[Rfam]
RNA sequence: GUCGUUUACCGCGCGCGCUAAUCAGUGACCGGGGCUGGUUUUGAUUAUCCCACAGUCAGGUACCUGAAGUAGCGCGCGUGGUGGCCAGACG
Numbered sequence: 001g002u003c004g005u006u007u008a009c010c011g012c013g014c015g016c017g018c019u020a021a022u023c024a025g026u027g028a029c030c031g032g033g034g035c036u037g038g039u040u041u042u043g044a045u046u047a048u049c050c051c052a053c054a055g056u057c058a059g060g061u062a063c064c065u066g067a068a069g070u071a072g073c074g075c076g077c078g079u080g081g082u083g084g085c086c087a088g089a090c091g
Stems, first nucleotide, its partner, number of pairs: 007083004012078001014076007028061003033057004
A member of the RNA family "mir-275 microRNA precursor family" from Drosophila grimshawi, 91 nucleotides long. Rfam's curators put it in the seed alignment. Pairs were carried over by alignment from the consensus structure, which was predicted with RNAalifold. On this family, see Liu et al., BMC Genomics 2010: "MicroRNAs of Bombyx mori identified by Solexa sequencing".